About this RNA: Shown here is a 525-nucleotide part of an RNA, a member of the family "Bacterial small subunit ribosomal RNA". The literature on the family includes a 2001 paper in Science by Yusupov et al., "Crystal structure of the ribosome at 5.5 A resolution".

RNA sequence: UUUAUGGAGAGUUUGAUCCUGGCUCAGAGUGAACGCUGGCGGCGUGCCUAAUACAUGCAAGUCGAACGAUGAAGUCUCCGGCUUGCCGGAGACGGAUUAGUGGCGCACGGGUGAGUAAUACAUAGGUCAUGUGCCCUUUAGUCCGGGAUAGCCACUGGAAACGGUGAUUAAUACCGGAUAUACCCUAUGGGGGAAAGAAUUUCGCUAAAGGAUCAGCCUAUGUCCUAUCAGCUUGUUGGUGAGGUAAUGGCUCACCAAGGCUAUGACGGGUAUCCGGCCUGAGAGGGUGAACGGACACACUGGAACUGAGACACGGUCCAGACUCCUACGGGAGGCAGCAGUAGGGAAUAUUGCUCAAUGGGGGAAACCCUGAAGCAGCAACGCCGCGUGGAGGAUGAAGGUUUUAGGAUUGUAAACUCCUUUUCUAAGAGAAGAUAAUGACGGUAUCUUAGGAAUAAGCACCGGCUAACUCCGUGCCAGCAGCCGCGGUAAUACGGAGGGUGCAAGCGUUACUCGGAAUCACUG
Dot-bracket structure: ........(((((.......))))).((((.((((((.(((((((((....(((.(((..(((..((.((....(((((((....)))))))...))..)))))......(((......((((((((..((...(((((((.((((....(.(((((....))))).).....)))).....(((....)))....((...)).)))))))..))))))))))(((....(((..((((((((.......)))))))))))......)))..((((((((....))))...))))))).(((((............))))).((((....))))...)))))).).....(.(((...(((((....))))).)))).)).))))))..((((......((((....)))).....))))....((((((...(.......)....))))))......(((((......(((((.....((....)).......)))))))))).))))))))))..........
Numbered sequence: 001u002u003u004a005u006g007g008a009g010a011g012u013u014u015g016a017u018c019c020u021g022g023c024u025c026a027g028a029g030u031g032a033a034c035g036c037u038g039g040c041g042g043c044g045u046g047c048c049u050a051a052u053a054c055a056u057g058c059a060a061g062u063c064g065a066a067c068g069a070u071g072a073a074g075u076c077u078c079c080g081g082c083u084u085g086c087c088g089g090a091g092a093c094g095g096a097u098u099a100g101u102g103g104c105g106c107a108c109g110g111g112u113g114a115g116u117a118a119u120a121c122a123u124a125g126g127u128c129a130u131g132u133g134c135c136c137u138u139u140a141g142u143c144c145g146g147g148a149u150a151g152c153c154a155c156u157g158g159a160a161a162c163g164g165u166g167a168u169u170a171a172u173a174c175c176g177g178a179u180a181u182a183c184c185c186u187a188u189g190g191g192g193g194a195a196a197g198a199a200u201u202u203c204g205c206u207a208a209a210g211g212a213u214c215a216g217c218c219u220a221u222g223u224c225c226u227a228u229c230a231g232c233u234u235g236u237u238g239g240u241g242a243g244g245u246a247a248u249g250g251c252u253c254a255c256c257a258a259g260g261c262u263a264u265g266a267c268g269g270g271u272a273u274c275c276g277g278c279c280u281g282a283g284a285g286g287g288u289g290a291a292c293g294g295a296c297a298c299a300c301u302g303g304a305a306c307u308g309a310g311a312c313a314c315g316g317u318c319c320a321g322a323c324u325c326c327u328a329c330g331g332g333a334g335g336c337a338g339c340a341g342u343a344g345g346g347a348a349u350a351u352u353g354c355u356c357a358a359u360g361g362g363g364g365a366a367a368c369c370c371u372g373a374a375g376c377a378g379c380a381a382c383g384c385c386g387c388g389u390g391g392a393g394g395a396u397g398a399a400g401g402u403u404u405u406a407g408g409a410u411u412g413u414a415a416a417c418u419c420c421u422u423u424u425c426u427a428a429g430a431g432a433a434g435a436u437a438a439u440g441a442c443g444g445u446a447u448c449u450u451a452g453g454a455a456u457a458a459g460c461a462c463c464g465g466c467u468a469a470c471u472c473c474g475u476g477c478c479a480g481c482a483g484c485c486g487c488g489g490u491a492a493u494a495c496g497g498a499g500g501g502u503g504c505a506a507g508c509g510u511u512a513c514u515c516g517g518a519a520u521c522a523c524u525g
Stems, first nucleotide, its partner, number of pairs: 009025005027515004032511006039387006045380002047345001052343003056340003061104003066101002069097002075092007111298003120223008130215002135211007143177004151168001153166005183192003197203002224270003231261003236258008273295004277288004300321005323334004351377001353376003359372005390420004400411004425452006434442001459504005470499005480487002